[Rfam]
RNA: MIR6151 microRNA precursor family
RNA sequence: AGGUCCUAGUGAGUGUGAGGCAUUGGAUUGAUUUUGUUCAAUCCGAGCCCCACAUUCAUCAGGGGUUCGU
Numbered sequence: 001a002g003g004u005c006c007u008a009g010u011g012a013g014u015g016u017g018a019g020g021c022a023u024u025g026g027a028u029u030g031a032u033u034u035u036g037u038u039c040a041a042u043c044c045g046a047g048c049c050c051c052a053c054a055u056u057c058a059u060c061a062g063g064g065g066u067u068c069g070u
Base pairs, nucleotide, nucleotide: 004065006063007062009060010058011057012056013055014054015053016052017051019049020048021047023046024045025044026043027042028041029040030039031038